Annotation
The record is a 128-nucleotide RNA from Sodalis praecaptivus, which matches "RtT RNA" in Rfam. Rfam classes the family as a cis-regulatory element. Rfam's curators write: This family represents a bacterial cis-regulatory element known as RtT RNA. The exact function of RtT is unknown although it is thought that it may be involved in changing the cellular response in relation to amino acid starvation. The literature on the family includes a 1991 paper in Nucleic Acids Res by Bosl and Kersten, "A novel RNA product of the tyrT operon of Escherichia coli".
RNA sequence: CCUGAUAUUCGCGGGGGAAGGUGAGAACCUUCGACCAAGGUUCGUGUCGAGCGGCGCGAGACAACGAUGCGCAGCAUCGGCCCGUAGGGUGAGCCGCAAAGCGGCGAAUCAUCCUUCCCCCACCACCC
Number, nucleotide and partner (000 for none) at each position: 001c000002c000003u000004g000005a000006u000007a000008u000009u000010c000011g000012c000013g000014g000015g119016g118017g117018a116019a115020g114021g113022u111023g000024a000025g000026a000027a000028c000029c000030u000031u000032c091033g090034a000035c089036c088037a000038a000039g000040g000041u086042u000043c084044g083045u000046g000047u000048c058049g057050a000051g000052c000053g000054g000055c000056g000057c049058g048059a000060g000061a000062c000063a000064a000065c079066g078067a077068u076069g075070c074071g000072c000073a000074g070075c069076a068077u067078c066079g065080g000081c000082c000083c044084g043085u000086a041087g000088g036089g035090u033091g032092a000093g000094c000095c000096g000097c000098a000099a000100a000101g000102c000103g000104g000105c000106g000107a000108a000109u000110c000111a022112u000113c021114c020115u019116u018117c017118c016119c015120c000121c000122a000123c000124c000125a000126c000127c000128c000